[Rfam]
RNA sequence: UAGGGAGGACGGGGUUCGGAUCCCCUCCCCGAGCCCAGGGUAACUCUUAGAGUGGAGGGGAC
Numbered sequence: 001u002a003g004g005g006a007g008g009a010c011g012g013g014g015u016u017c018g019g020a021u022c023c024c025c026u027c028c029c030c031g032a033g034c035c036c037a038g039g040g041u042a043a044c045u046c047u048u049a050g051a052g053u054g055g056a057g058g059g060g061a062c
Stems, first nucleotide, its partner, number of pairs: 008041001010039001012036004016031001018029002022060006
Rfam assigns this 62-nucleotide RNA from Nannospalax galili to the family "Gag/pol translational readthrough site". Its family is annotated with viral translational readthrough in the Gene Ontology. Taxonomically the source falls in Nannospalax (Eukaryota, Dipnotetrapodomorpha, Glires, Myomorpha). Rfam 15.1 lists 3,368 matches to the family in 94 species. The family's consensus secondary structure is taken from published work. The family's RNA type in Rfam is cis-regulatory element. The match comes from Rfam's covariance-model search (70 bits).